[Rfam]
RNA sequence: AGCUGCGCAGUGGGCACAGAGCGAACUAUUCUUUCGCCUUUUACUAAAGAAUACCGUGUGCUCGCUGCAAAUAGCAGCAUACUCUAAUUUUUUGAGGGGAUUUUCUAUAUAAGGAGAAC
Numbered sequence: 001a002g003c004u005g006c007g008c009a010g011u012g013g014g015c016a017c018a019g020a021g022c023g024a025a026c027u028a029u030u031c032u033u034u035c036g037c038c039u040u041u042u043a044c045u046a047a048a049g050a051a052u053a054c055c056g057u058g059u060g061c062u063c064g065c066u067g068c069a070a071a072u073a074g075c076a077g078c079a080u081a082c083u084c085u086a087a088u089u090u091u092u093u094g095a096g097g098g099g100a101u102u103u104u105c106u107a108u109a110u111a112a113g114g115a116g117a118a119c
Stems, first nucleotide, its partner, number of pairs: 003077004008067011027053008101118005
Record summary:
A member of the RNA family "U5 spliceosomal RNA" from Oryza sativa, 119 nucleotides long. It scores 90 bits against the family's covariance model. About the family: U5 RNA is a component of both types of known spliceosome. The precise function of this molecule is unknown, though it is known that the 5' loop is required for splice site selection and p220 binding, and that both the 3' stem-loop and the Sm site are important for Sm protein binding and cap methylation. A reference for the family is Zwieb (1997), "The uRNA database", Nucleic Acids Res. Gene Ontology terms of the family: U5 snRNP and spliceosomal tri-snRNP complex assembly. NCBI's taxonomy places the organism under Eukaryota, Streptophytina, Magnoliopsida, Petrosaviidae, Oryza sativa.